[Rfam]
RNA sequence: UCCCAAUGAAGAAACAUUCACACCGUGUACUUUCUAUCCUAGCCCCAGAAUCUGUAAAGAUGAACCCACUAAGACUGGCUGGGGGAAGAAGAGGAAAACUUGUUCCAGAAGGAAUUGUUUGAGGGAU
Numbered sequence: 001u002c003c004c005a006a007u008g009a010a011g012a013a014a015c016a017u018u019c020a021c022a023c024c025g026u027g028u029a030c031u032u033u034c035u036a037u038c039c040u041a042g043c044c045c046c047a048g049a050a051u052c053u054g055u056a057a058a059g060a061u062g063a064a065c066c067c068a069c070u071a072a073g074a075c076u077g078g079c080u081g082g083g084g085g086a087a088g089a090a091g092a093g094g095a096a097a098a099c100u101u102g103u104u105c106c107a108g109a110a111g112g113a114a115u116u117g118u119u120u121g122a123g124g125g126a127u
Stems, first nucleotide, its partner, number of pairs: 001126004
RNA: Small nucleolar RNA SNORD22
Organism: Castor canadensis